[Rfam]
RNA sequence: UAUAGGGUAGCCGAAAACUAUUUAAAAGAGUAGGCA
Numbered sequence: 001u002a003u004a005g006g007g008u009a010g011c012c013g014a015a016a017a018c019u020a021u022u023u024a025a026a027a028g029a030g031u032a033g034g035c036a
Stems, first nucleotide, its partner, number of pairs: 002021004010035003
RNA: DUF805b RNA